[Rfam]
RNA sequence: UUAAAAUUAAAUGGCGAUUGUCGGUAUAGUCUCUUUUCUAAACAAUAUUAAGUGACUAGACCGAACACUCGUGCUAUAAUUUUAGAA
Numbered sequence: 001u002u003a004a005a006a007u008u009a010a011a012u013g014g015c016g017a018u019u020g021u022c023g024g025u026a027u028a029g030u031c032u033c034u035u036u037u038c039u040a041a042a043c044a045a046u047a048u049u050a051a052g053u054g055a056c057u058a059g060a061c062c063g064a065a066c067a068c069u070c071g072u073g074c075u076a077u078a079a080u081u082u083u084a085g086a087a
Stems, first nucleotide, its partner, number of pairs: 011077006019067003022063003027058005033052002
RNA: mir-286 microRNA precursor family
Organism: Lucilia cuprina